The record is a 130-nucleotide sequence from Pontibaca salina, which matches "TPP riboswitch aptamer (THI element)" in Rfam. The source organism's lineage runs through Bacteria, Pseudomonadota, Alphaproteobacteria, Rhodobacterales and Pontibaca. A search with the family's covariance model found it, with a score of 57 bits.
Nucleotides: 130
Base pairs, nucleotide, nucleotide: 008116009115010114011080012079013078014077017032018031019030020029021028039074086111087110088109089108092105093104094103095102
Number, partner (000 for none) and nucleotide at each position: 001000g002000c003000a004000u005000c006000a007000c008116g009115u010114c011080a012079g013078g014077g015000g016000a017032g018031u019030c020029c021028c022000g023000c024000c025000u026000a027000g028021g029020g030019g031018a032017c033000u034000g035000a036000g037000a038000u039074g040000c041000c042000g043000a044000c045000a046000g047000g048000a049000a050000g051000u052000g053000c054000c055000a056000a057000u058000g059000g060000c061000a062000c063000g064000a065000c066000c067000g068000g069000u070000g071000a072000a073000g074039c075000g076000a077014c078013c079012c080011u081000u082000u083000g084000a085000a086111c087110c088109u089108g090000a091000c092105c093104c094103a095102g096000u097000u098000g099000a100000u101000a102095c103094u104093g105092g106000c107000g108089u109088a110087g111086g112000a113000a114010g115009a116008c117000c118000g119000a120000g121000a122000g123000g124000c125000u126000u127000u128000u129000a130000c
Notes
The base pairs follow the family's consensus structure, which is taken from published work. Gene Ontology term of the family: thiamine pyrophosphate binding.